Twister_sister_ribozyme: a 67-nucleotide RNA from Nitrospira moscoviensis. The match comes from Rfam's covariance-model search (35 bits).
[Rfam]
RNA sequence: ACGUGCGGCAAGGGCCAGCCGGGGCAAGCCGGCUGGAUGUCCCAUCCGGCCGCCCAUGCGCGGUUCC
Numbered sequence: 001a002c003g004u005g006c007g008g009c010a011a012g013g014g015c016c017a018g019c020c021g022g023g024g025c026a027a028g029c030c031g032g033c034u035g036g037a038u039g040u041c042c043c044a045u046c047c048g049g050c051c052g053c054c055c056a057u058g059c060g061c062g063g064u065u066c067c
Base pairs, nucleotide, nucleotide: 004062005061006060007059013051014050015049016028018033019032020031021030034048035047036046037045038044039043